[Rfam]
RNA sequence: UGAGGAAGCUGAAUCUAGUGCAGACAGAUGUAUAGUCUUCUGUCUGCUCUUUCAGCUUUCCUAGAGUAAAGCGAAGGUCUCUGUCUGGUUUAGAACAGUUAACUGAUCCAGAUCGUUCCCCUUUGAACAUU
Numbered sequence: 001u002g003a004g005g006a007a008g009c010u011g012a013a014u015c016u017a018g019u020g021c022a023g024a025c026a027g028a029u030g031u032a033u034a035g036u037c038u039u040c041u042g043u044c045u046g047c048u049c050u051u052u053c054a055g056c057u058u059u060c061c062u063a064g065a066g067u068a069a070a071g072c073g074a075a076g077g078u079c080u081c082u083g084u085c086u087g088g089u090u091u092a093g094a095a096c097a098g099u100u101a102a103c104u105g106a107u108c109c110a111g112a113u114c115g116u117u118c119c120c121c122u123u124u125g126a127a128c129a130u131u
Stems, first nucleotide, its partner, number of pairs: 004061003008056005020047006030039001073124005081115001083113003087109002090106004
A member of the RNA family "Small Cajal body specific RNA 3" from Pogona vitticeps, 131 nucleotides long.
Clan: SCARNA3 clan.
For this family Rfam cites "Cajal body-specific small nuclear RNAs: a novel class of 2'-O-methylation and pseudouridylation guide RNAs" (Darzacq et al., EMBO J, 2002).
scaRNAs are a specific class of small nuclear RNAs which localise to the Cajal bodies and guide the modification of RNA polymerase II transcribed spliceosomal RNAs U1, U2, U4, U5 and U12.